The family of this 106-nucleotide sequence from Lactococcus lactis is "lactis-plasmid RNA". The family's RNA type in Rfam is small RNA. Taxonomically the source falls in Lactococcus (Bacteria, Bacillati, Bacillota, Streptococcaceae).
[Rfam]
RNA sequence: CCAAAAAUAAAAAUAUUCGUCUGAAACAAACAAAAAUAAAAUUGGAAAUUUUAGGUUUUGUGAAUGAAAGAUGAAUUAUUUUUACUGUAAGUGUAGCCACACUUGC
Numbered sequence: 001c002c003a004a005a006a007a008u009a010a011a012a013a014u015a016u017u018c019g020u021c022u023g024a025a026a027c028a029a030a031c032a033a034a035a036a037u038a039a040a041a042u043u044g045g046a047a048a049u050u051u052u053a054g055g056u057u058u059u060g061u062g063a064a065u066g067a068a069a070g071a072u073g074a075a076u077u078a079u080u081u082u083u084a085c086u087g088u089a090a091g092u093g094u095a096g097c098c099a100c101a102c103u104u105g106c
Base pairs, nucleotide, nucleotide: 008084009083010082011081012080013079014078015076016075017074018073019072020071021070022069026065030061031060032059033058034057035056037053038052039051040050041049042048043047087106088105089104090103091102092101093100094099